[Rfam]
RNA sequence: CCUACCAUUCUGUUGGUAGUAGCCUGCCCCGACACGCGUAAAGAGUAAUCUUUGGGUGUGAAGCUCGGGAGAUAAUGUACCGAAUAGCUACGAGGCUAUCAGAAAAGGCUGUGAGGCCAAAACUGACCUGGAAGUUUCAUCCGGGAUAGGGC
Numbered sequence: 001c002c003u004a005c006c007a008u009u010c011u012g013u014u015g016g017u018a019g020u021a022g023c024c025u026g027c028c029c030c031g032a033c034a035c036g037c038g039u040a041a042a043g044a045g046u047a048a049u050c051u052u053u054g055g056g057u058g059u060g061a062a063g064c065u066c067g068g069g070a071g072a073u074a075a076u077g078u079a080c081c082g083a084a085u086a087g088c089u090a091c092g093a094g095g096c097u098a099u100c101a102g103a104a105a106a107g108g109c110u111g112u113g114a115g116g117c118c119a120a121a122a123c124u125g126a127c128c129u130g131g132a133a134g135u136u137u138c139a140u141c142c143g144g145g146a147u148a149g150g151g152c
Stems, first nucleotide, its partner, number of pairs: 002019006028069005033060005039054006084099006100125003109116002127145006

Rfam assigns this 152-nucleotide sequence from [Flexibacter] sp. ATCC 35208 to the family "Group II catalytic intron D1-D4-7". About the family: Group II introns are found in rRNA, tRNA and mRNA of organelles in fungi, plants and protists, and also in mRNA in bacteria. The match comes from Rfam's covariance-model search (106 bits). The base pairs follow the family's consensus structure. Rfam links the family to the GO term Group II intron splicing. A reference for the family is Bonen and Vogel (2001), "The ins and outs of group II introns", Trends Genet.